[Rfam]
RNA: Streptomyces-metK RNA
RNA sequence: GCGAGACACCUGGCCCGAUCGCCGGAAGUGACCGAUAAACUGGCCGACGGUACGCGCCGAGCGCAGCUCUCGGACGUACCACCCAUGAUCAGCCAGCAGCCGCUGCAACCCCAGGGAG
Numbered sequence: 001g002c003g004a005g006a007c008a009c010c011u012g013g014c015c016c017g018a019u020c021g022c023c024g025g026a027a028g029u030g031a032c033c034g035a036u037a038a039a040c041u042g043g044c045c046g047a048c049g050g051u052a053c054g055c056g057c058c059g060a061g062c063g064c065a066g067c068u069c070u071c072g073g074a075c076g077u078a079c080c081a082c083c084c085a086u087g088a089u090c091a092g093c094c095a096g097c098a099g100c101c102g103c104u105g106c107a108a109c110c111c112c113a114g115g116g117a118g
Stems, first nucleotide, its partner, number of pairs: 049080006057073005094105004
Dot-bracket structure: ................................................((((((..(((((.......))))).)))))).............((((....)))).............